[Rfam]
RNA sequence: AUGUCAAUAUAAGUAUGUCCCAUGCAAUGGUUGGGACAUACUUAUACUAAAA
Dot-bracket structure: .....(.(((((.(((.(((((........).)))).))).))))).)....
RNA: mir-1302 microRNA precursor family
Organism: Nyctereutes procyonoides